[Rfam]
RNA sequence: GUCGAGAGCAUCGCGCCCGGGCCCACGCUUAGCAGUUCGAGGGAAACCUCGUGCAACUGUCCGGGCGCAGGGCGCAAGAUCCGGCGUGUGGCCCCUGCUGAAUUACGGUGCUGCUACACCGAGGCGUUAUCGGGCGCACACGCCGGGCUCUCGGCGCCUA
Numbered sequence: 001g002u003c004g005a006g007a008g009c010a011u012c013g014c015g016c017c018c019g020g021g022c023c024c025a026c027g028c029u030u031a032g033c034a035g036u037u038c039g040a041g042g043g044a045a046a047c048c049u050c051g052u053g054c055a056a057c058u059g060u061c062c063g064g065g066c067g068c069a070g071g072g073c074g075c076a077a078g079a080u081c082c083g084g085c086g087u088g089u090g091g092c093c094c095c096u097g098c099u100g101a102a103u104u105a106c107g108g109u110g111c112u113g114c115u116a117c118a119c120c121g122a123g124g125c126g127u128u129a130u131c132g133g134g135c136g137c138a139c140a141c142g143c144c145g146g147g148c149u150c151u152c153g154g155c156g157c158c159u160a
Base pairs, nucleotide, nucleotide: 001155002154003153004152005151006150007149008148009078011077013075014074015068016067021062024059025058039050040049041048042047081146082145083144084143085142086141087140088139089138090137091135092134093133094132107120108119109118110117
RNA: Xanthomonadaceae sRNA sX15